The family of this 405-nucleotide RNA sequence from Waterburya agarophytonicola is "Bacterial RNase P class A". The family's consensus secondary structure is taken from published work. By type it is a ribozyme. Taxonomically the source falls in Waterburya agarophytonicola (Bacteria, Bacillati, Cyanobacteriota, Pleurocapsaceae).
RNA sequence: AGAGUUAGCGAGGUAGUUGCAAAUUUGUCCUUAGAGGCAGGUUUGAGGAAAGUCCGGACUCCCGAAAGACCAUACUUGCUGGAUAAUUCCCAGUGCGAGCGAUCGCGAGGAGAGUGCCACAGAAAAAUACCGCCAACUCAGUUAAUAUUAAUUAAUUGGUUGGUAAGGGUGCAAAGGUGUCGGUAAGAGCGCACCAGCAGUAUCGAGAGAUACUGGCUCGGUAAACCCCAGUAGGGAGCAAGGUCGGAGGGAUUAUGGUUGGUCUUUUUCCAAUCCCGAUUUAGGAGUACUGCAUGAGGUGUUUGGUAACAAACAUCCUAGAUAGAUAACUACCCUCAACCGAAGAUUGUGUUACGGCACUACUAAGGUUGGGAACAGAAUCCGGCUUACGUUCUAACUCUUUCC
Numbered sequence: 001a002g003a004g005u006u007a008g009c010g011a012g013g014u015a016g017u018u019g020c021a022a023a024u025u026u027g028u029c030c031u032u033a034g035a036g037g038c039a040g041g042u043u044u045g046a047g048g049a050a051a052g053u054c055c056g057g058a059c060u061c062c063c064g065a066a067a068g069a070c071c072a073u074a075c076u077u078g079c080u081g082g083a084u085a086a087u088u089c090c091c092a093g094u095g096c097g098a099g100c101g102a103u104c105g106c107g108a109g110g111a112g113a114g115u116g117c118c119a120c121a122g123a124a125a126a127a128u129a130c131c132g133c134c135a136a137c138u139c140a141g142u143u144a145a146u147a148u149u150a151a152u153u154a155a156u157u158g159g160u161u162g163g164u165a166a167g168g169g170u171g172c173a174a175a176g177g178u179g180u181c182g183g184u185a186a187g188a189g190c191g192c193a194c195c196a197g198c199a200g201u202a203u204c205g206a207g208a209g210a211u212a213c214u215g216g217c218u219c220g221g222u223a224a225a226c227c228c229c230a231g232u233a234g235g236g237a238g239c240a241a242g243g244u245c246g247g248a249g250g251g252a253u254u255a256u257g258g259u260u261g262g263u264c265u266u267u268u269u270c271c272a273a274u275c276c277c278g279a280u281u282u283a284g285g286a287g288u289a290c291u292g293c294a295u296g297a298g299g300u301g302u303u304u305g306g307u308a309a310c311a312a313a314c315a316u317c318c319u320a321g322a323u324a325g326a327u328a329a330c331u332a333c334c335c336u337c338a339a340c341c342g343a344a345g346a347u348u349g350u351g352u353u354a355c356g357g358c359a360c361u362a363c364u365a366a367g368g369u370u371g372g373g374a375a376c377a378g379a380a381u382c383c384g385g386c387u388u389a390c391g392u393u394c395u396a397a398c399u400c401u402u403u404c405c
Base pairs, nucleotide, nucleotide: 001401002400003399004398005397006396007395008394010392012334013333014332015331016330017329018328020045021044022043023042024041025040026039027038028037050388051387052386054385055384056383057382058381059238060237061236062235068270069269073233074232075231077230078229079093080092081091082090094108095106096105097104098103109228110227114226115225116222117221118220130168131167132164133163134162135161136160137159138158140156176195177194178193179192181191182190197217198215199214200213201212202211203210204209242291243290244289252282256278257277261275262274263273298317299316300315301314302313303312304311305310